The family of this 74-nucleotide RNA from Populus tomentosa is "Plastid-ycf2 5UTR RNA".
It scores 72 bits against the family's covariance model.
Rfam describes the family as follows. Plastid ycf2 is a non-coding RNA (ncRNA) recognised in plastids.
The family's consensus secondary structure was predicted with LocARNA.
The literature on the family includes a 2023 paper in Plant Commun by Richter et al., "Retrograde signaling in plants: A critical review focusing on the GUN pathway and beyond".
The source organism's lineage runs through Eukaryota, Mesangiospermae, Gunneridae, Pentapetalae and Populus.
RNA sequence: GUGUAUCCAAUAAGAAUUGAACUUAUGAAUUCUUCAAUUAUGAGUUGGGCACUUUAACCUUCAGCAAUGGAUGC
Dot-bracket structure: ..((((((.(((((.......))))).............((..((((((..........)))))).))))))))